[Rfam]
RNA: Group II catalytic intron D1-D4-4
RNA sequence: CAGUAGGAGUAAAUCCUACCAGGAUAAAAGUCGGAGUCCUGUAGCUAGGGUAGCAAUGUGGAGGGAAACCAAAAUGUUGAAGCCUACCGACAAUGUUACCGAAGGAUAGCAGCGAAUUACUAGGCCAUAGCGAAA
Numbered sequence: 001c002a003g004u005a006g007g008a009g010u011a012a013a014u015c016c017u018a019c020c021a022g023g024a025u026a027a028a029a030g031u032c033g034g035a036g037u038c039c040u041g042u043a044g045c046u047a048g049g050g051u052a053g054c055a056a057u058g059u060g061g062a063g064g065g066a067a068a069c070c071a072a073a074a075u076g077u078u079g080a081a082g083c084c085u086a087c088c089g090a091c092a093a094u095g096u097u098a099c100c101g102a103a104g105g106a107u108a109g110c111a112g113c114g115a116a117u118u119a120c121u122a123g124g125c126c127a128u129a130g131c132g133a134a135a
Stems, first nucleotide, its partner, number of pairs: 020041005049088005054079006063070002095110004100105001112128001114126001